[Rfam]
Source information:
Shown here is a 143-nucleotide RNA sequence from Vulpes vulpes, a member of the family "Small Cajal body specific RNA 21". The family's RNA type in Rfam is small Cajal body RNA. The base pairs follow the family's consensus structure, which was predicted with RNAalifold. From the family's description: scaRNAs are a specific class of small nuclear RNAs which localise to the Cajal bodies and guide the modification of RNA polymerase II transcribed spliceosomal RNAs U1, U2, U4, U5 and U12. ACA68 (SCARNA21) is a member of the H/ACA class of snoRNAs that guide the sites of modification of uridines to pseudouridines. This snoRNA was identified by computational screening and its expression in mouse experimentally verified by Northern blot and primer extension analysis. A search with the family's covariance model found it, with a score of 108 bits.
RNA sequence: UGGCUUGGUUUCCUGGGGUGUGGGCUCAGCAUGCCCCACCUCCCCUCAGCCCAGCCUAGAGCAUAGAGGUCUGCUUCCCCCUGCCAUGGGAGAGGUUCUUGAGAUGGGAGCCUUGUCCCCAGGACUGUUUUGGCCUCACAUUA
Dot-bracket structure: .((((.(.......((((.(((((..........))))).))))......).)))).........(((((..(.....((.......(((....................)))........))......)..)))))......
Numbered sequence: 001u002g003g004c005u006u007g008g009u010u011u012c013c014u015g016g017g018g019u020g021u022g023g024g025c026u027c028a029g030c031a032u033g034c035c036c037c038a039c040c041u042c043c044c045c046u047c048a049g050c051c052c053a054g055c056c057u058a059g060a061g062c063a064u065a066g067a068g069g070u071c072u073g074c075u076u077c078c079c080c081c082u083g084c085c086a087u088g089g090g091a092g093a094g095g096u097u098c099u100u101g102a103g104a105u106g107g108g109a110g111c112c113u114u115g116u117c118c119c120c121a122g123g124a125c126u127g128u129u130u131u132g133g134c135c136u137c138a139c140a141u142u143a
Stems, first nucleotide, its partner, number of pairs: 002056004007051001015044004020039005066137005073130001079123002088113003